The family of this 106-nucleotide sequence from Centipeda noxia is "SAM riboswitch aptamer (S box leader)".
RNA sequence: ACCUCAUCCAGAGCAGUGGAGGGAAUGGCCCGAUGAAGCUGCGGCAACCAUGACGACUGGGUCAACGGUGCCAAUUCCUUUAGGCGGACUGCCUAUGAGAUGAGAG
Numbered sequence: 001a002c003c004u005c006a007u008c009c010a011g012a013g014c015a016g017u018g019g020a021g022g023g024a025a026u027g028g029c030c031c032g033a034u035g036a037a038g039c040u041g042c043g044g045c046a047a048c049c050a051u052g053a054c055g056a057c058u059g060g061g062u063c064a065a066c067g068g069u070g071c072c073a074a075u076u077c078c079u080u081u082a083g084g085c086g087g088a089c090u091g092c093c094u095a096u097g098a099g100a101u102g103a104g105a106g
Stems, first nucleotide, its partner, number of pairs: 003104006013042005021031003025080001027078002043072004048068002052062001076098001081095006
Pairs were carried over by alignment from the consensus structure, which is taken from published work.
The sequence is in the family's curated seed alignment.